Shown here is a 141-nucleotide RNA sequence from Propithecus coquereli, a member of the family "U4 spliceosomal RNA". Rfam's curators write: U4 small nuclear RNA (U4 snRNA) is a component of the major U2-dependent spliceosome. The family is grouped with related families in Rfam's "U4 clan". For this family Rfam cites "Structures of the human pre-catalytic spliceosome and its precursor spliceosome" (Zhan et al., Cell Res, 2018).
[Rfam]
RNA sequence: AGCUUUGUGCAGUGGCAGUAUCGUAGCCAAUGAGGUUUAUCUGAGGCACGAAUAUUGCUGAUUGAAAGCUUUUCCCAAUACCCCACCAUGAUGGUUUAAAAUGUAGUCAGCAUUGGCAAUUUUUGACGAUCUCUACGGAGA
Numbered sequence: 001a002g003c004u005u006u007g008u009g010c011a012g013u014g015g016c017a018g019u020a021u022c023g024u025a026g027c028c029a030a031u032g033a034g035g036u037u038u039a040u041c042u043g044a045g046g047c048a049c050g051a052a053u054a055u056u057g058c059u060g061a062u063u064g065a066a067a068g069c070u071u072u073u074c075c076c077a078a079u080a081c082c083c084c085a086c087c088a089u090g091a092u093g094g095u096u097u098a099a100a101a102u103g104u105a106g107u108c109a110g111c112a113u114u115g116g117c118a119a120u121u122u123u124u125g126a127c128g129a130u131c132u133c134u135a136c137g138g139a140g141a
Base pairs, nucleotide, nucleotide: 021051022050023049024048026047027046028045034042035041086116087115088113089112090111092109093108094107095106096105130141131140132139133138